Background:
The family of this 109-nucleotide sequence from bacteria symbiont BFo2 of Frankliniella occidentalis is "Tryptophan operon leader". At least 6 amino acid operons are known to be regulated by attenuation. The literature on the family includes a 1982 paper in Annu Rev Genet by Kolter and Yanofsky, "Attenuation in amino acid biosynthetic operons". The family's RNA type in Rfam is cis-regulatory leader.

RNA sequence: CACAGUGGUGGCGCGUCACUCUCCCAUAAUCGGGCGACGUUGUCAUGCAUCCAGCUAAAAUAACCGCUAUGCAGAUUUCUAAGCCCGCCCACUCGGCGGGCUUUUUAUU
Numbered sequence: 001c002a003c004a005g006u007g008g009u010g011g012c013g014c015g016u017c018a019c020u021c022u023c024c025c026a027u028a029a030u031c032g033g034g035c036g037a038c039g040u041u042g043u044c045a046u047g048c049a050u051c052c053a054g055c056u057a058a059a060a061u062a063a064c065c066g067c068u069a070u071g072c073a074g075a076u077u078u079c080u081a082a083g084c085c086c087g088c089c090c091a092c093u094c095g096g097c098g099g100g101c102u103u104u105u106u107a108u109u
Base pairs, nucleotide, nucleotide: 008046009045010044011043013040014039015038016037017036023034024033025032082102083101084100085099086098087097088096